[Rfam]
RNA sequence: CUCUGGUAGCUAGAGAUCCCUCAGAUCCUUUUUGGUAGUGUGGAAAAUCUCUAGCAGUGGCGCCCGAACAGGGACUUGAAAGCGAAAGUAAGACCAGAG
Numbered sequence: 001c002u003c004u005g006g007u008a009g010c011u012a013g014a015g016a017u018c019c020c021u022c023a024g025a026u027c028c029u030u031u032u033u034g035g036u037a038g039u040g041u042g043g044a045a046a047a048u049c050u051c052u053a054g055c056a057g058u059g060g061c062g063c064c065c066g067a068a069c070a071g072g073g074a075c076u077u078g079a080a081a082g083c084g085a086a087a088g089u090a091a092g093a094c095c096a097g098a099g
Stems, first nucleotide, its partner, number of pairs: 001099007010054008018043002020040001022038001024036001026034001056089001058087001061084002063073003075082002
This 99-nucleotide sequence from Lentivirus humimdef1 belongs to the Rfam family "HIV primer binding site (PBS)". The literature on the family includes a 2021 paper in Nucleic Acids Res by Song et al., "The three-way junction structure of the HIV-1 PBS-segment binds host enzyme important for viral infectivity". The sequence is in the family's curated seed alignment. About the family: This family consists of several, structured HIV primer binding sites (PBSs). tRNA(3)(Lys) binds to the PBS to initiate reverse transcription.